[Rfam]
RNA: atpB RNA
RNA sequence: CCAUGAUCGCUGCGAUGAUGUGCGACGGAGUCCGCAGCGGUCAAGGAAGAUUUCAGACGUCCAUCGCACCGUGCGGUUUUAUGCCCGUGCGGCCCGAACACGGGAGAGAACG
Numbered sequence: 001c002c003a004u005g006a007u008c009g010c011u012g013c014g015a016u017g018a019u020g021u022g023c024g025a026c027g028g029a030g031u032c033c034g035c036a037g038c039g040g041u042c043a044a045g046g047a048a049g050a051u052u053u054c055a056g057a058c059g060u061c062c063a064u065c066g067c068a069c070c071g072u073g074c075g076g077u078u079u080u081a082u083g084c085c086c087g088u089g090c091g092g093c094c095c096g097a098a099c100a101c102g103g104g105a106g107a108g109a110a111c112g
Stems, first nucleotide, its partner, number of pairs: 001046002004043009069092008